[Rfam]
Rfam assigns this 266-nucleotide RNA sequence from Halopseudomonas bauzanensis to the family "PhrS". NCBI's taxonomy places the organism under Bacteria, Pseudomonadota, Gammaproteobacteria, Pseudomonadales, Halopseudomonas. On this family, see Livny et al., Nucleic Acids Res 2006: "Identification of 17 Pseudomonas aeruginosa sRNAs and prediction of sRNA-encoding genes in 10 diverse pathogens using the bioinformatic tool sRNAPredict2".
RNA sequence: ACCAUACACGGACAUACAUGGAAGCGGAGAUGCCCUCAUGUUUAUCGAUGAUGCAGUGAUUGCCGGUUUGUUGACUGUGGGUCUGAUGGUCAUUUUCCUGGCCGGGGUGGGCGUUUUCAUCUACCAGGAUGCGCGCAAGAGCAGCAAGAAGAAUCCCUGAUUCCACUGAUUUCGAGAGUUCCGACCAGCGGUGCACGAUCUCGGAACCUGCAAAUGAGCAUGGCUCGCAAGGCCUUUGGCGGUUACCUUCUGGUGACCGCCUUUUU
Numbered sequence: 001a002c003c004a005u006a007c008a009c010g011g012a013c014a015u016a017c018a019u020g021g022a023a024g025c026g027g028a029g030a031u032g033c034c035c036u037c038a039u040g041u042u043u044a045u046c047g048a049u050g051a052u053g054c055a056g057u058g059a060u061u062g063c064c065g066g067u068u069u070g071u072u073g074a075c076u077g078u079g080g081g082u083c084u085g086a087u088g089g090u091c092a093u094u095u096u097c098c099u100g101g102c103c104g105g106g107g108u109g110g111g112c113g114u115u116u117u118c119a120u121c122u123a124c125c126a127g128g129a130u131g132c133g134c135g136c137a138a139g140a141g142c143a144g145c146a147a148g149a150a151g152a153a154u155c156c157c158u159g160a161u162u163c164c165a166c167u168g169a170u171u172u173c174g175a176g177a178g179u180u181c182c183g184a185c186c187a188g189c190g191g192u193g194c195a196c197g198a199u200c201u202c203g204g205a206a207c208c209u210g211c212a213a214a215u216g217a218g219c220a221u222g223g224c225u226c227g228c229a230a231g232g233c234c235u236u237u238g239g240c241g242g243u244u245a246c247c248u249u250c251u252g253g254u255g256a257c258c259g260c261c262u263u264u265u266u
Stems, first nucleotide, its partner, number of pairs: 011103001013101001053063003080091004178233003240259007